[Rfam]
RNA: Plastid psbT antisense RNA
Organism: Kingdonia uniflora
Nucleotides: 038
Stems, first nucleotide, its partner, number of pairs: 003018003007014002020035006
Number, partner (000 for none) and nucleotide at each position: 001000g002000u003018a004017g005016u006000a007014g008013g009000a010000u011000c012000u013008c014007c015000a016005a017004u018003u019000u020035u021034u022033u023032g024031g025030g026000a027000u028000g029000c030025c031024c032023c033022a034021a035020a036000c037000u038000c